Rfam assigns this 125-nucleotide sequence from Phtheirospermum japonicum to the family "Small nucleolar RNA snoR77". The organism belongs to Phtheirospermum, within Eukaryota. The family's consensus secondary structure was predicted with WAR. A reference for the family is Marker et al. (2002), "Experimental RNomics: identification of 140 candidates for small non-messenger RNAs in the plant Arabidopsis thaliana", Curr Biol. A search with the family's covariance model found it, with a score of 105 bits.
[Rfam]
RNA sequence: AGGCAACCCCCUUUUUUCUUUGAAGUUGAGACGGGUGGUGUUAAUCUGCUCGUAGAUCAAUGUGCUUUUGCUCUUCAGACUUGCUGAUUAUUUCUUGAAGCUGGUCUAGUAAGCUUAAGUAUAUU
Numbered sequence: 001a002g003g004c005a006a007c008c009c010c011c012u013u014u015u016u017u018c019u020u021u022g023a024a025g026u027u028g029a030g031a032c033g034g035g036u037g038g039u040g041u042u043a044a045u046c047u048g049c050u051c052g053u054a055g056a057u058c059a060a061u062g063u064g065c066u067u068u069u070g071c072u073c074u075u076c077a078g079a080c081u082u083g084c085u086g087a088u089u090a091u092u093u094c095u096u097g098a099a100g101c102u103g104g105u106c107u108a109g110u111a112a113g114c115u116u117a118a119g120u121a122u123a124u125u
Stems, first nucleotide, its partner, number of pairs: 002042004007038002009035003013031004065119003070114003077107005083101003